[Rfam]
Nucleotides: 062
Base pairs, nucleotide, nucleotide: 010025011024012023013022016053017052018051019050020049021048032043033042034041
Number, partner (000 for none) and nucleotide at each position: 001000a002000g003000u004000g005000u006000u007000u008000u009000g010025g011024g012023u013022g014000a015000u016053g017052g018051g019050g020049c021048u022013c023012a024011c025010c026000u027000u028000a029000a030000u031000u032043u033042c034041c035000u036000g037000c038000a039000a040000u041034g042033g043032a044000u045000a046000a047000u048021g049020g050019c051018u052017c053016c054000u055000a056000c057000g058000g059000a060000c061000a062000g
The family of this 62-nucleotide sequence from Paenalicyclobacillus mengziensis is "Fluoride riboswitch aptamer (crcB RNA motif)".